Description:
Shown here is an 85-nucleotide RNA sequence from Otolemur garnettii, a member of the family "mir-877 microRNA precursor family". Pairs were carried over by alignment from the consensus structure, which was predicted with RNAalifold.
RNA sequence: GUAGAGGAGAUGGUACAGGGUUACAGGCUAAGACUUGGGUGUUCUUGGGGCCCUUGAAUAUAUGUCCUCUUCUCUCUCCUUCCAG
Numbered sequence: 001g002u003a004g005a006g007g008a009g010a011u012g013g014u015a016c017a018g019g020g021u022u023a024c025a026g027g028c029u030a031a032g033a034c035u036u037g038g039g040u041g042u043u044c045u046u047g048g049g050g051c052c053c054u055u056g057a058a059u060a061u062a063u064g065u066c067c068u069c070u071u072c073u074c075u076c077u078c079c080u081u082c083c084a085g
Base pairs, nucleotide, nucleotide: 004081005080006079007078008077009076012075013074017070018069019067020066022064023063025061027059035057036056037055038054039053041051042049043048

The literature on the family includes a 2006 paper in Genome Res by Berezikov et al., "Many novel mammalian microRNA candidates identified by extensive cloning and RAKE analysis".
A search with the family's covariance model found it, with a score of 53 bits.
Rfam links the family to the GO terms RISC complex and miRNA-mediated post-transcriptional gene silencing.